[Rfam]
RNA sequence: AGGUGAUGUCUCCUUACCUUUAUCAACGGAGGCACUCGGUUGCGCUGUGGGGUUGUUGAAGAAGGACCCUUAGAUAUGAAUUGUCGCUGGUGUGAUGUGAGGCCGGGUUUGAUGCCCG
Dot-bracket structure: [[[[..(((((((..]]]]........)))))))((((((((((((..((((((.(......).))))))..((((.....))))...)))))))).))))..(((((.....)))))

Background: epsC RNA: a 118-nucleotide sequence from Bacillus benzoevorans. The family has 30 seed sequences and 450 matches in Rfam 15.1. The family's consensus secondary structure is taken from published work. The source organism's lineage runs through Bacteria, Bacillota, Bacilli, Bacillaceae and Bacillus.